[Rfam]
RNA sequence: GUGCAUCCGGUAGGAAUUGAAUCUCCGAAUUUUCCAAUUAUGAGUUAUGCGCUUUAACCAUUUAGCCAUGGAUGC
Numbered sequence: 001g002u003g004c005a006u007c008c009g010g011u012a013g014g015a016a017u018u019g020a021a022u023c024u025c026c027g028a029a030u031u032u033u034c035c036a037a038u039u040a041u042g043a044g045u046u047a048u049g050c051g052c053u054u055u056a057a058c059c060a061u062u063u064a065g066c067c068a069u070g071g072a073u074g075c
Base pairs, nucleotide, nucleotide: 003075004074005073006072007071008070010026012024013023014022040069041068042067044066045065046064047063049061051059
Shown here is a 75-nucleotide RNA from Anisodus acutangulus, a member of the family "Plastid-ycf2 5UTR RNA". Rfam's curators write: Plastid ycf2 is a non-coding RNA (ncRNA) recognised in plastids. It was found in the prime untranslated region (5UTR) of ycf2 genes, it presents a tRNA-like motif which suggests it can be involved in mRNA maturation, particularly involved in defining the precise 5' end of the transcript. The family has 204 seed sequences and 3,521 matches in Rfam 15.1. Taxonomically the source falls in Anisodus (Eukaryota, Streptophyta, Euphyllophyta, Magnoliopsida). By type it is a cis-regulatory element.